The family of this 100-nucleotide RNA from Vibrio navarrensis is "Purine riboswitch aptamer". Lineage of the source: Bacteria > Pseudomonadati > Vibrionales > Vibrionaceae > Vibrio. The family's consensus secondary structure is taken from published work.
RNA sequence: GGGCGAAAUGACAAUUUGCUUCGUAUAACCCCACUAAUAGGGUGUGGGGGUCUCUACCAGGAUCCGUAAAGUUCUGAUUACGAAGAGUAAAGUGAUUAUU
Numbered sequence: 001g002g003g004c005g006a007a008a009u010g011a012c013a014a015u016u017u018g019c020u021u022c023g024u025a026u027a028a029c030c031c032c033a034c035u036a037a038u039a040g041g042g043u044g045u046g047g048g049g050g051u052c053u054c055u056a057c058c059a060g061g062a063u064c065c066g067u068a069a070a071g072u073u074c075u076g077a078u079u080a081c082g083a084a085g086a087g088u089a090a091a092g093u094g095a096u097u098a099u100u
Stems, first nucleotide, its partner, number of pairs: 019085007029049006058076006